[Rfam]
RNA: MIR390 microRNA precursor family
Organism: Phaseolus vulgaris
RNA sequence: UAGAAGAAUCUGUAAAGCUCAGGAGGGAUAGCGCCAUGGAUGGUCAUUGCUCAUCUCUCUUCUCUUUCCUCCCUUUGCCUCUUUGAUCUUCUCUUGCGCUAUCCAUCCUGAGUUUCAUGGCUUCUUUCU
Numbered sequence: 001u002a003g004a005a006g007a008a009u010c011u012g013u014a015a016a017g018c019u020c021a022g023g024a025g026g027g028a029u030a031g032c033g034c035c036a037u038g039g040a041u042g043g044u045c046a047u048u049g050c051u052c053a054u055c056u057c058u059c060u061u062c063u064c065u066u067u068c069c070u071c072c073c074u075u076u077g078c079c080u081c082u083u084u085g086a087u088c089u090u091c092u093c094u095u096g097c098g099c100u101a102u103c104c105a106u107c108c109u110g111a112g113u114u115u116c117a118u119g120g121c122u123u124c125u126u127u128c129u
Base pairs, nucleotide, nucleotide: 010120016114017113018112019111020110021109022108023107024106026104027103028102029101030100031099032098033097034096